[Rfam]
RNA: Nematode snoRNA ceN39
Nucleotides: 129
Stems, first nucleotide, its partner, number of pairs: 003055005011045002015042006022035003026031001067121006076113003080107002083104002087100001089099002
Number, partner (000 for none) and nucleotide at each position: 001000u002000u003055g004054g005053c006052g007051u008000u009000a010000a011045g012044g013000a014000a015042c016041c017040a018039g019038u020037a021000u022035c023034a024033u025000g026031u027000c028000u029000c030000a031026a032000a033024a034023u035022g036000c037020u038019a039018u040017u041016g042015g043000g044012c045011u046000g047000a048000c049000a050000c051007a052006c053005g054004c055003c056000u057000a058000a059000a060000g061000a062000a063000a064000a065000g066000u067121u068120a069119a070118a071117a072116u073000u074000a075000u076113g077112g078111u079000c080107g081106c082000g083104c084103a085000u086000u087100u088000u089099u090098u091000g092000a093000c094000c095000a096000u097000a098090a099089a100087a101000u102000u103084u104083g105000u106081g107080c108000a109000c110000u111078a112077c113076c114000c115000a116072a117071u118070u119069u120068u121067a122000a123000g124000a125000c126000a127000u128000u129000c